RNA sequence: CCAGCAACCCUAACAAAAGCAUUGACCGGUUUUGUCUGCAGUAAGUGCUUUUUGUUGAGGUAGCUAUU
Numbered sequence: 001c002c003a004g005c006a007a008c009c010c011u012a013a014c015a016a017a018a019g020c021a022u023u024g025a026c027c028g029g030u031u032u033u034g035u036c037u038g039c040a041g042u043a044a045g046u047g048c049u050u051u052u053u054g055u056u057g058a059g060g061u062a063g064c065u066a067u068u
Stems, first nucleotide, its partner, number of pairs: 004064002007061003011057001013055005018049006025042002